[Rfam]
RNA sequence: UUCGGUCCUCGGUAGUGGUCCGCGGAUGGUGACCCGGCUCAGGCCGGAUCGCACUGCGCGGACCUCGAUCGAAGACCGAC
Numbered sequence: 001u002u003c004g005g006u007c008c009u010c011g012g013u014a015g016u017g018g019u020c021c022g023c024g025g026a027u028g029g030u031g032a033c034c035c036g037g038c039u040c041a042g043g044c045c046g047g048a049u050c051g052c053a054c055u056g057c058g059c060g061g062a063c064c065u066c067g068a069u070c071g072a073a074g075a076c077c078g079a080c
Stems, first nucleotide, its partner, number of pairs: 002079006009072005017064008026055001
Notes: Shown here is an 80-nucleotide sequence from Mumia flava, a member of the family "Actino-pnp RNA". The base pairs follow the family's consensus structure, which is taken from published work.